[Rfam]
Overview: Shown here is a 479-nucleotide RNA sequence from Elainella sp. C42_A2020_010, a member of the family "Bacterial RNase P class A". The source organism's lineage runs through Bacteria, Cyanobacteriota, Cyanophyceae, Oculatellaceae and Elainella. It scores 242 bits against the family's covariance model. Rfam classes the family as a ribozyme. The base pairs follow the family's consensus structure, which is taken from published work.
RNA sequence: AGAGGAGGCGCAGGCAGUUGCAGACUCUUUGAGUCUGAGGAAAGUCCGGGCUCCCCAAAGACCAGACUUGCUGGGUAACGCCCAGUGCGGGCAACCGUGAGGAUAGUGCCACAGAAACAUACCGCCGCUUUCUAAAAGUGUUGAGUGUUGAGUUCUAAGUUUUGAAUUAAUACCUCAACACUCAAAAUUCAAAACUCAACACUUGAUCAAGCGGUAAGGGUGCAAAGGUGCGGUAAGAGCGCACCAGCAACGUCGAGAGGCGUUGGCUCGGUAAACCCCGGUCGGGAGCAAGGUGGCAGGAGCUAAGGUUGGUCUUUUCCCAGCUCCGGGUAGGAUGGAGGCAACUCCAUACCUGCGAAAUCCGCUAGAGGUGUCUGGUAACAGGCAUCCCAGAUAGAUAACUGCCCUACUUGUGGCCUGUCAUUGUGAAUGGCAGCGGCAUGAGUAGAACAGAACCCGGCUUAUGUCCGCCUCUUUCC
Numbered sequence: 001a002g003a004g005g006a007g008g009c010g011c012a013g014g015c016a017g018u019u020g021c022a023g024a025c026u027c028u029u030u031g032a033g034u035c036u037g038a039g040g041a042a043a044g045u046c047c048g049g050g051c052u053c054c055c056c057a058a059a060g061a062c063c064a065g066a067c068u069u070g071c072u073g074g075g076u077a078a079c080g081c082c083c084a085g086u087g088c089g090g091g092c093a094a095c096c097g098u099g100a101g102g103a104u105a106g107u108g109c110c111a112c113a114g115a116a117a118c119a120u121a122c123c124g125c126c127g128c129u130u131u132c133u134a135a136a137a138g139u140g141u142u143g144a145g146u147g148u149u150g151a152g153u154u155c156u157a158a159g160u161u162u163u164g165a166a167u168u169a170a171u172a173c174c175u176c177a178a179c180a181c182u183c184a185a186a187a188u189u190c191a192a193a194a195c196u197c198a199a200c201a202c203u204u205g206a207u208c209a210a211g212c213g214g215u216a217a218g219g220g221u222g223c224a225a226a227g228g229u230g231c232g233g234u235a236a237g238a239g240c241g242c243a244c245c246a247g248c249a250a251c252g253u254c255g256a257g258a259g260g261c262g263u264u265g266g267c268u269c270g271g272u273a274a275a276c277c278c279c280g281g282u283c284g285g286g287a288g289c290a291a292g293g294u295g296g297c298a299g300g301a302g303c304u305a306a307g308g309u310u311g312g313u314c315u316u317u318u319c320c321c322a323g324c325u326c327c328g329g330g331u332a333g334g335a336u337g338g339a340g341g342c343a344a345c346u347c348c349a350u351a352c353c354u355g356c357g358a359a360a361u362c363c364g365c366u367a368g369a370g371g372u373g374u375c376u377g378g379u380a381a382c383a384g385g386c387a388u389c390c391c392a393g394a395u396a397g398a399u400a401a402c403u404g405c406c407c408u409a410c411u412u413g414u415g416g417c418c419u420g421u422c423a424u425u426g427u428g429a430a431u432g433g434c435a436g437c438g439g440c441a442u443g444a445g446u447a448g449a450a451c452a453g454a455a456c457c458c459g460g461c462u463u464a465u466g467u468c469c470g471c472c473u474c475u476u477u478c479c
Stems, first nucleotide, its partner, number of pairs: 001475005007469002010467003013406007021037007042463003046460005051288004063341001065283003069280002071085005086100001087098004101278002106276002108272003122219002124215007227245006247267001248265007292363002296356005336349005370389008